[Rfam]
RNA: TPP riboswitch aptamer (THI element)
RNA sequence: GCAACGGCAAAGGGGUGCUCGCGGCUGUUUUUUAAGCCGGCGGGCUGAGAUAAACCCUCAGAACCUGAUCCGGUUAGUACCGGCGAAGGAAUUGUUGGAAUUUGACAG
Numbered sequence: 001g002c003a004a005c006g007g008c009a010a011a012g013g014g015g016u017g018c019u020c021g022c023g024g025c026u027g028u029u030u031u032u033u034a035a036g037c038c039g040g041c042g043g044g045c046u047g048a049g050a051u052a053a054a055c056c057c058u059c060a061g062a063a064c065c066u067g068a069u070c071c072g073g074u075u076a077g078u079a080c081c082g083g084c085g086a087a088g089g090a091a092u093u094g095u096u097g098g099a100a101u102u103u104g105a106c107a108g
Base pairs, nucleotide, nucleotide: 006096007095008094009093010092011058012057013056014055016052017045018044019043020042021041064089065088066087070083071082072081073080